[Rfam]
RNA sequence: GACAAUAAUGAUGAGCCUACAGACCUGUAAUGAUUAUUGCAUAUAUGAUUGCAUAAUCAAAGAACAUCUAAGGGAUUGAGUUGUC
Numbered sequence: 001g002a003c004a005a006u007a008a009u010g011a012u013g014a015g016c017c018u019a020c021a022g023a024c025c026u027g028u029a030a031u032g033a034u035u036a037u038u039g040c041a042u043a044u045a046u047g048a049u050u051g052c053a054u055a056a057u058c059a060a061a062g063a064a065c066a067u068c069u070a071a072g073g074g075a076u077u078g079a080g081u082u083g084u085c
Base pairs, nucleotide, nucleotide: 002084003083004082005081006080

This 85-nucleotide RNA sequence from Ensete ventricosum belongs to the Rfam family "Small nucleolar RNA SNORD25". It is annotated as a C/D-box small nucleolar RNA. The family is grouped with related families in Rfam's "SNORD25 clan". Rfam links the family to the GO terms nucleolus and RNA processing. The base pairs follow the family's consensus structure, which was predicted with PFOLD.